[Rfam]
RNA sequence: GCAGCUCUUAAUAUGUAUCAUGCAUGGUUGUUUUAAAAAUCAUUUUUGAAACAACCAUGCAUGAUACAUAUUAAGAGCUGC
Dot-bracket structure: ....((((((((((((((((((((.((((((((((((.......)))))))))))).))))))))))))))))))))....
A member of the RNA family "mir-190 microRNA precursor family" from Rhinolophus ferrumequinum, 81 nucleotides long. Its Rfam clan is "mir-50 clan".